[Rfam]
RNA sequence: AGGUAUUUGAGUAUAUGGGGAUGAUGAGCAGACAUUCAAUGUUCAGCGGGCGAGAAAUAGUAAAGGGGAAACGAAUUUCCCCUUUUUUAACUAUCU
Numbered sequence: 001a002g003g004u005a006u007u008u009g010a011g012u013a014u015a016u017g018g019g020g021a022u023g024a025u026g027a028g029c030a031g032a033c034a035u036u037c038a039a040u041g042u043u044c045a046g047c048g049g050g051c052g053a054g055a056a057a058u059a060g061u062a063a064a065g066g067g068g069a070a071a072c073g074a075a076u077u078u079c080c081c082c083u084u085u086u087u088u089a090a091c092u093a094u095c096u
Stems, first nucleotide, its partner, number of pairs: 008038001010036003016032001019029001062086007070078002